[Rfam]
RNA sequence: UUAUAGCCCCGAUAGCAGCGGCAUCCUUUUUCUGUACAAGACCCGGCACCGGCAGAAAAAGAUAUAGCGGAUAGCGGGAUUAAGC
Numbered sequence: 001u002u003a004u005a006g007c008c009c010c011g012a013u014a015g016c017a018g019c020g021g022c023a024u025c026c027u028u029u030u031u032c033u034g035u036a037c038a039a040g041a042c043c044c045g046g047c048a049c050c051g052g053c054a055g056a057a058a059a060a061g062a063u064a065u066a067g068c069g070g071a072u073a074g075c076g077g078g079a080u081u082a083a084g085c
Base pairs, nucleotide, nucleotide: 009077010076011075013073014072018068019067023063024062025061029058030057031056032055033054034053035052